[Rfam]
RNA: mir-252 microRNA precursor family
Organism: Elysia chlorotica
RNA sequence: CCCCGGCCAUAAGUAGUGGUGCCGCAGGUAACGCUGUCUGGCUUGUACCUGCGCUCCGGUGCUUACAGUCGCGG
Numbered sequence: 001c002c003c004c005g006g007c008c009a010u011a012a013g014u015a016g017u018g019g020u021g022c023c024g025c026a027g028g029u030a031a032c033g034c035u036g037u038c039u040g041g042c043u044u045g046u047a048c049c050u051g052c053g054c055u056c057c058g059g060u061g062c063u064u065a066c067a068g069u070c071g072c073g074g
Base pairs, nucleotide, nucleotide: 001074002073004071005070006069007068010065011064012063013062014061015060017058018057019056024052025051026050027049028048029047030046